[Rfam]
RNA sequence: CGACCCGACCGGGCCCCUCUGGCAGCCGAAACCGGCUGCGAUGUCGGCGGGAGAA
Numbered sequence: 001c002g003a004c005c006c007g008a009c010c011g012g013g014c015c016c017c018u019c020u021g022g023c024a025g026c027c028g029a030a031a032c033c034g035g036c037u038g039c040g041a042u043g044u045c046g047g048c049g050g051g052a053g054a055a
Stems, first nucleotide, its partner, number of pairs: 006049002009047004022039007
A member of the RNA family "terC RNA" from Propylenella binzhouense, 55 nucleotides long. It scores 49 bits against the family's covariance model. The source organism's lineage runs through Bacteria, Pseudomonadota, Hyphomicrobiales, Propylenellaceae and Propylenella. Rfam 15.1 lists 1,112 matches to the family in 772 species.